This 162-nucleotide RNA sequence from Erysiphe pulchra belongs to the Rfam family "U1 spliceosomal RNA". About the family: U1 is a small nuclear RNA (snRNA) component of the spliceosome (involved in pre-mRNA splicing). It is annotated as a spliceosomal small nuclear RNA. Gene Ontology terms of the family: mRNA 5'-splice site recognition, U1 snRNP and pre-mRNA 5'-splice site binding.
[Rfam]
RNA sequence: AUACUUACCUGGCGUAGGGGUUACCGUGAUCACGAAGGCGGUUCCCCCAGGAUGAGGCCUUUCCAUUGCACUACGGUCGGGCUGACUCCUGCGAAUGCCCCAAAUGUGGGUAUCUCGGGCGCGUAAUUUUUGGUAGCGGGGACUGCGUUCGCGCCGUCCCUA
Numbered sequence: 001a002u003a004c005u006u007a008c009c010u011g012g013c014g015u016a017g018g019g020g021u022u023a024c025c026g027u028g029a030u031c032a033c034g035a036a037g038g039c040g041g042u043u044c045c046c047c048c049a050g051g052a053u054g055a056g057g058c059c060u061u062u063c064c065a066u067u068g069c070a071c072u073a074c075g076g077u078c079g080g081g082c083u084g085a086c087u088c089c090u091g092c093g094a095a096u097g098c099c100c101c102a103a104a105u106g107u108g109g110g111u112a113u114c115u116c117g118g119g120c121g122c123g124u125a126a127u128u129u130u131u132g133g134u135a136g137c138g139g140g141g142a143c144u145g146c147g148u149u150c151g152c153g154c155c156g157u158c159c160c161u162a
Base pairs, nucleotide, nucleotide: 012122013121014120015119017047018046019045020044023042024041025040026039027038049090050089051088052087054086056083057082058081060079063076064075092117093116094115095113096112097111099109100108138161139160140159141158142157145154146153147152